[Rfam]
RNA sequence: UCGGAGUAAAAUAGUGAGAAGCCGACAUGGGGAAAUGAUCGACCCUUGGAAUAAGUUUAAAUUUGUUUUUUUUUUUACUCCAUAAACUUUUUACCGUGGGUAAAAGAUUCUUGCUGGGGUAUAAAAAAACCAGAUUUAAAUUUAGCCCAAGGGUUGGUGAUGUAUUUUCCCCAAGAAGGCGGCUCACUAUUUUACCCCAA
Numbered sequence: 001u002c003g004g005a006g007u008a009a010a011a012u013a014g015u016g017a018g019a020a021g022c023c024g025a026c027a028u029g030g031g032g033a034a035a036u037g038a039u040c041g042a043c044c045c046u047u048g049g050a051a052u053a054a055g056u057u058u059a060a061a062u063u064u065g066u067u068u069u070u071u072u073u074u075u076u077a078c079u080c081c082a083u084a085a086a087c088u089u090u091u092u093a094c095c096g097u098g099g100g101u102a103a104a105a106g107a108u109u110c111u112u113g114c115u116g117g118g119g120u121a122u123a124a125a126a127a128a129a130c131c132a133g134a135u136u137u138a139a140a141u142u143u144a145g146c147c148c149a150a151g152g153g154u155u156g157g158u159g160a161u162g163u164a165u166u167u168u169c170c171c172c173a174a175g176a177a178g179g180c181g182g183c184u185c186a187c188u189a190u191u192u193u194a195c196c197c198c199a200a
Stems, first nucleotide, its partner, number of pairs: 003198002006195013021180003026175001028173008038161004042154003046150004052144004057139009067129007076121007087106003091103005
About this RNA:
A member of the RNA family "MIR2670 microRNA precursor family" from Medicago truncatula, 200 nucleotides long. Lineage of the source: Eukaryota > Tracheophyta > Spermatophyta > Fabaceae > Medicago. The match comes from Rfam's covariance-model search (177 bits). Its family is annotated with miRNA-mediated post-transcriptional gene silencing and RISC complex in the Gene Ontology.